RNA sequence: GAAUGGCACCAGGGGUGUCCACAUGUACAUGUUAAGUGGGCUGAGAUGAAACCCUUUGCACCUGAACAGGGUAAUGCCUGCGAAGGGAGUGUGCCUGGUGUUGUGU
Numbered sequence: 001g002a003a004u005g006g007c008a009c010c011a012g013g014g015g016u017g018u019c020c021a022c023a024u025g026u027a028c029a030u031g032u033u034a035a036g037u038g039g040g041c042u043g044a045g046a047u048g049a050a051a052c053c054c055u056u057u058g059c060a061c062c063u064g065a066a067c068a069g070g071g072u073a074a075u076g077c078c079u080g081c082g083a084a085g086g087g088a089g090u091g092u093g094c095c096u097g098g099u100g101u102u103g104u105g106u
Stems, first nucleotide, its partner, number of pairs: 006094004011055004016049001017041005061086003067080004
Rfam assigns this 106-nucleotide RNA sequence to the family "TPP riboswitch aptamer (THI element)". From the family's description: Vitamin B(1) in its active form thiamin pyrophosphate (TPP) is an essential coenzyme that is synthesised by coupling of pyrimidine and thiazole moieties in bacteria. The previously detected thiamin-regulatory element, thi box was extended, resulting in a new, highly conserved RNA secondary structure, the THI element, which is widely distributed in eubacteria and also occurs in some archaea. Analysis of operon structures identified a large number of new candidate thiamin-regulated genes, mostly transporters, in various prokaryotic organisms.